A member of the RNA family "c-di-AMP riboswitch aptamer (ydaO/yuaA leader)" from Hathewaya histolytica, 132 nucleotides long.
[Rfam]
RNA sequence: CCUAAGUAAAUGCCAAUUUAAAAUUUAGGUUAUAACGCGGAGGAACCAUUAUUAGGGGUGAAUCAUUAAGUUAUGUAGGUUAUCCUUUACCGAACCCGACAGCUAACUCCGUAGGCAAAAGGAAGGGAGAAA
Numbered sequence: 001c002c003u004a005a006g007u008a009a010a011u012g013c014c015a016a017u018u019u020a021a022a023a024u025u026u027a028g029g030u031u032a033u034a035a036c037g038c039g040g041a042g043g044a045a046c047c048a049u050u051a052u053u054a055g056g057g058g059u060g061a062a063u064c065a066u067u068a069a070g071u072u073a074u075g076u077a078g079g080u081u082a083u084c085c086u087u088u089a090c091c092g093a094a095c096c097c098g099a100c101a102g103c104u105a106a107c108u109c110c111g112u113a114g115g116c117a118a119a120a121g122g123a124a125g126g127g128a129g130a131a132a
Base pairs, nucleotide, nucleotide: 011117012116013115014114019035037112038111039110040109041108042107047055056097057096058095064075065074066073078091079090080089